[Rfam]
RNA sequence: AAAAAAGCCCCACUGUUUCCAGUGAGGCAGCGGUUUCAUGCGUUCCCGCGCGGGGAACCAUCGGCACGCAUGCUCCUAUCAGACAUGUCGUGCGCCACCCAAAACCGCCUUUCAAUUAUGGGAGAGGAGAAACCGGAGGAAGAGCUUAUGGGGAAACGUAAGUCUUCUCCGCGG
Numbered sequence: 001a002a003a004a005a006a007g008c009c010c011c012a013c014u015g016u017u018u019c020c021a022g023u024g025a026g027g028c029a030g031c032g033g034u035u036u037c038a039u040g041c042g043u044u045c046c047c048g049c050g051c052g053g054g055g056a057a058c059c060a061u062c063g064g065c066a067c068g069c070a071u072g073c074u075c076c077u078a079u080c081a082g083a084c085a086u087g088u089c090g091u092g093c094g095c096c097a098c099c100c101a102a103a104a105c106c107g108c109c110u111u112u113c114a115a116u117u118a119u120g121g122g123a124g125a126g127g128a129g130a131a132a133c134c135g136g137a138g139g140a141a142g143a144g145c146u147u148a149u150g151g152g153g154a155a156a157c158g159u160a161a162g163u164c165u166u167c168u169c170c171g172c173g174g
Stems, first nucleotide, its partner, number of pairs: 007028003011024005035122005134171004139167004144163005
RNA: ylbH leader
Organism: Brevibacillus sp. SYP-B805